[Rfam]
RNA sequence: GGCCUCCCUCUGUGGGGCGAUCUAUCGUGGGGCCACCAGAUCAAUUGCCCUGCAGAGGGAGGCC
Numbered sequence: 001g002g003c004c005u006c007c008c009u010c011u012g013u014g015g016g017g018c019g020a021u022c023u024a025u026c027g028u029g030g031g032g033c034c035a036c037c038a039g040a041u042c043a044a045u046u047g048c049c050c051u052g053c054a055g056a057g058g059g060a061g062g063c064c
Base pairs, nucleotide, nucleotide: 001064002063003062004061005060006059007058008057009056010055011054012053013052014051015050016049017048018047019046020045021044024041025040026039029036
Dot-bracket structure: (((((((((((((((((((((..(((..(......)..)))..)))))))))))))))))))))
Shown here is a 64-nucleotide RNA sequence from Myotis davidii, a member of the family "mir-9242 microRNA precursor family". A search with the family's covariance model found it, with a score of 64 bits. The source organism's lineage runs through Eukaryota, Bilateria, Teleostomi, Amniota and Myotis. Gene Ontology terms of the family: RISC complex and miRNA-mediated post-transcriptional gene silencing.